Rfam assigns this 175-nucleotide RNA sequence from Monascus purpureus to the family "Small nucleolar RNA snR80". The literature on the family includes a 2004 paper in Nucleic Acids Res by Schattner et al., "Genome-wide searching for pseudouridylation guide snoRNAs: analysis of the Saccharomyces cerevisiae genome". Rfam links the family to the GO terms nucleolus and RNA processing.
RNA sequence: CGACCUUUGCAACACUCUGGCCCGUACUGUCUCUUCCAGGGACAUGCAUAUACCGUGGUAUAGGCUUAUUUUGCGCAAAGAAGAUUAAAGCGGCCUUCUACUCACCGCGGUAUUCGUGGGGGAGUCCUUACGGCUCCUCGUCAUGGAUACAGUGGUCCAUCAUCAUGGCCUAAAU
Numbered sequence: 001c002g003a004c005c006u007u008u009g010c011a012a013c014a015c016u017c018u019g020g021c022c023c024g025u026a027c028u029g030u031c032u033c034u035u036c037c038a039g040g041g042a043c044a045u046g047c048a049u050a051u052a053c054c055g056u057g058g059u060a061u062a063g064g065c066u067u068a069u070u071u072u073g074c075g076c077a078a079a080g081a082a083g084a085u086u087a088a089a090g091c092g093g094c095c096u097u098c099u100a101c102u103c104a105c106c107g108c109g110g111u112a113u114u115c116g117u118g119g120g121g122g123a124g125u126c127c128u129u130a131c132g133g134c135u136c137c138u139c140g141u142c143a144u145g146g147a148u149a150c151a152g153u154g155g156u157c158c159a160u161c162a163u164c165a166u167g168g169c170c171u172a173a174a175u
Stems, first nucleotide, its partner, number of pairs: 007078003019066004025060006092170004105155004110150003114147002